[Rfam]
RNA sequence: GUGCUCUGUGGGCUUCUUUACAGUGUUGCCUUGUGACAUGGCAAUCAAGCAGCAUUGUACAGGGCUAUCACAGCACAC
Numbered sequence: 001g002u003g004c005u006c007u008g009u010g011g012g013c014u015u016c017u018u019u020a021c022a023g024u025g026u027u028g029c030c031u032u033g034u035g036a037c038a039u040g041g042c043a044a045u046c047a048a049g050c051a052g053c054a055u056u057g058u059a060c061a062g063g064g065c066u067a068u069c070a071c072a073g074c075a076c077a078c
Stems, first nucleotide, its partner, number of pairs: 014064004019059010030049004
RNA: mir-103/107 microRNA precursor family
Organism: Neogobius melanostomus